[Rfam]
RNA: tp2
Organism: Pantoea vagans
Nucleotides: 120
Stems, first nucleotide, its partner, number of pairs: 002104001004102001024096003039091001041089007050080005056074002059071002
Number, partner (000 for none) and nucleotide at each position: 001000u002104g003000u004102g005000u006000u007000c008000c009000u010000u011000a012000u013000c014000u015000g016000u017000g018000u019000c020000u021000a022000a023000u024096a025095c026094g027000u028000u029000g030000a031000a032000u033000u034000a035000u036000c037000a038000g039091g040000a041089g042088c043087c044086u045085g046084u047083c048000u049000g050080c051079u052078u053077g054076u055000g056074c057073u058000u059071u060070g061000c062000u063000u064000c065000u066000u067000a068000u069000u070060c071059a072000c073057a074056g075000c076054a077053c078052a079051a080050g081000a082000a083047g084046a085045c086044a087043g088042g089041u090000c091039c092000g093000u094026c095025g096024u097000u098000u099000g100000u101000u102004u103000u104002c105000c106000g107000c108000a109000c110000g111000u112000u113000c114000g115000u116000u117000g118000c119000c120000g